This 81-nucleotide RNA from Mesocricetus auratus belongs to the Rfam family "mir-105 microRNA precursor family". Lineage of the source: Eukaryota > Teleostomi > Amniota > Theria > Mesocricetus. Gene Ontology terms of the family: miRNA-mediated post-transcriptional gene silencing, RISC complex and molecular_function.

RNA sequence: UGUGCAUUGUGGUCAAAUGCUCAGACUCCUGUGGUAGCUACUUAUGCACCAUGGAUGUUUGAGCAUCUACUAUGGUAUUUA
Numbered sequence: 001u002g003u004g005c006a007u008u009g010u011g012g013u014c015a016a017a018u019g020c021u022c023a024g025a026c027u028c029c030u031g032u033g034g035u036a037g038c039u040a041c042u043u044a045u046g047c048a049c050c051a052u053g054g055a056u057g058u059u060u061g062a063g064c065a066u067c068u069a070c071u072a073u074g075g076u077a078u079u080u081a
Stems, first nucleotide, its partner, number of pairs: 004078001006076007015068001017066010027055003034052002037049001039048001041046001
Background:
On this family, see Ahn et al., Mol Hum Reprod 2010: "MicroRNA transcriptome in the newborn mouse ovaries determined by massive parallel sequencing".